[Rfam]
This 93-nucleotide RNA sequence from Sphaerotilus montanus belongs to the Rfam family "SAH (S-adenosyl-L-homocysteine) riboswitch aptamer". Gene Ontology terms of the family: S-adenosylhomocysteine metabolic process and regulation of gene expression. Rfam 15.1 lists 1,354 matches to the family in 1,132 species.
RNA sequence: GCUUCCGAGGAGCGCUGCGAGACGCCAUCGGCCGGGUUGUCGCCCGGUUGCCGUCCCAGGCUCGGAUCCUGUUUCCAACCGCGCUCACCCUGC
Numbered sequence: 001g002c003u004u005c006c007g008a009g010g011a012g013c014g015c016u017g018c019g020a021g022a023c024g025c026c027a028u029c030g031g032c033c034g035g036g037u038u039g040u041c042g043c044c045c046g047g048u049u050g051c052c053g054u055c056c057c058a059g060g061c062u063c064g065g066a067u068c069c070u071g072u073u074u075c076c077a078a079c080c081g082c083g084c085u086c087a088c089c090c091u092g093c
Stems, first nucleotide, its partner, number of pairs: 004066005021055004026050001